The record is a 558-nucleotide part of an RNA from Trichinella sp. T8, which matches "Eukaryotic large subunit ribosomal RNA" in Rfam.

RNA sequence: CGGAUGGAGCUGACGGUGCAAUUUUGACCAAAAUCAGUCGUCGCUGUGUUCGUUGGCGAAUGAAUCUUUUGCAAACUUGUUUGUGUAGAUUAUCUUUCGUUUCGAAUGUACGCACGGUGCACUUUUGGUCGAUCAGCGUCACGAGCAACGUUCGAAUUUUUUGCUGCCGACAGUAAUUGUGUUUGUUGUUUUAAAAGCAACAAACAAUAAAGGCGGUUUGUGGAUGAGGUAAUUGUGGUAAAGACUUGUUCUUUGGUCUCAAUUGCCGUGCCAAUGCCGCAUCUCUCGGAUGAAUGUUGUUGUUGACAAGUUGAAGAGCAUUGUUCUGCGUACAAUUGUAAUGGGUCUGUUGGUGCCGUUGCGUUCGUGGGUUUCGGCUCACGAUUUGUCUGGUACGUCGGGAAAAAAGUCAAUUAUGAAUGUAAUUGAUCUGACUACCGUGCGUAACGGUAUUCAAAUGUGUGUUUGAUGGACUUUAUUUGCAAUCGGCGCUCAAUGUGUUUUCUUUUAUCGGUGGCGUCAAUGUUAGCCUCCCAUCCGACCCGUCUUGAAACACGG
Numbered sequence: 001c002g003g004a005u006g007g008a009g010c011u012g013a014c015g016g017u018g019c020a021a022u023u024u025u026g027a028c029c030a031a032a033a034u035c036a037g038u039c040g041u042c043g044c045u046g047u048g049u050u051c052g053u054u055g056g057c058g059a060a061u062g063a064a065u066c067u068u069u070u071g072c073a074a075a076c077u078u079g080u081u082u083g084u085g086u087a088g089a090u091u092a093u094c095u096u097u098c099g100u101u102u103c104g105a106a107u108g109u110a111c112g113c114a115c116g117g118u119g120c121a122c123u124u125u126u127g128g129u130c131g132a133u134c135a136g137c138g139u140c141a142c143g144a145g146c147a148a149c150g151u152u153c154g155a156a157u158u159u160u161u162u163g164c165u166g167c168c169g170a171c172a173g174u175a176a177u178u179g180u181g182u183u184u185g186u187u188g189u190u191u192u193a194a195a196a197g198c199a200a201c202a203a204a205c206a207a208u209a210a211a212g213g214c215g216g217u218u219u220g221u222g223g224a225u226g227a228g229g230u231a232a233u234u235g236u237g238g239u240a241a242a243g244a245c246u247u248g249u250u251c252u253u254u255g256g257u258c259u260c261a262a263u264u265g266c267c268g269u270g271c272c273a274a275u276g277c278c279g280c281a282u283c284u285c286u287c288g289g290a291u292g293a294a295u296g297u298u299g300u301u302g303u304u305g306a307c308a309a310g311u312u313g314a315a316g317a318g319c320a321u322u323g324u325u326c327u328g329c330g331u332a333c334a335a336u337u338g339u340a341a342u343g344g345g346u347c348u349g350u351u352g353g354u355g356c357c358g359u360u361g362c363g364u365u366c367g368u369g370g371g372u373u374u375c376g377g378c379u380c381a382c383g384a385u386u387u388g389u390c391u392g393g394u395a396c397g398u399c400g401g402g403a404a405a406a407a408a409g410u411c412a413a414u415u416a417u418g419a420a421u422g423u424a425a426u427u428g429a430u431c432u433g434a435c436u437a438c439c440g441u442g443c444g445u446a447a448c449g450g451u452a453u454u455c456a457a458a459u460g461u462g463u464g465u466u467u468g469a470u471g472g473a474c475u476u477u478a479u480u481u482g483c484a485a486u487c488g489g490c491g492c493u494c495a496a497u498g499u500g501u502u503u504u505c506u507u508u509u510a511u512c513g514g515u516g517g518c519g520u521c522a523a524u525g526u527u528a529g530c531c532u533c534c535c536a537u538c539c540g541a542c543c544c545g546u547c548u549u550g551a552a553a554c555a556c557g558g
Stems, first nucleotide, its partner, number of pairs: 001540007009530004017110001020109001023106004114520003118516003543558004
It scores 2847 bits against the family's covariance model. NCBI's taxonomy places the organism under Eukaryota, Protostomia, Enoplea, Trichinellidae, Trichinella. The base pairs follow the family's consensus structure, which is taken from published work.